Background:
This 87-nucleotide RNA sequence from Zostera marina belongs to the Rfam family "mir-156 microRNA precursor family". The organism belongs to Zostera, within Eukaryota. A reference for the family is Ambros (2001), "microRNAs: tiny regulators with great potential", Cell. Pairs were carried over by alignment from the consensus structure, which was predicted with PFOLD.

[Rfam]
RNA sequence: GUGACAGAAGAGAGUGAGCACACAUGGUGUUUUCUUGCAUGAAACUACAUGGUUGAAGCUAUGUGUGCUCACUUCUCUUCCUGUCAC
Numbered sequence: 001g002u003g004a005c006a007g008a009a010g011a012g013a014g015u016g017a018g019c020a021c022a023c024a025u026g027g028u029g030u031u032u033u034c035u036u037g038c039a040u041g042a043a044a045c046u047a048c049a050u051g052g053u054u055g056a057a058g059c060u061a062u063g064u065g066u067g068c069u070c071a072c073u074u075c076u077c078u079u080c081c082u083g084u085c086a087c
Stems, first nucleotide, its partner, number of pairs: 001087007009079001010077003013073009023063003
Rfam's curators write: This family represents the plant microRNA (miRNA) precursor mir-156.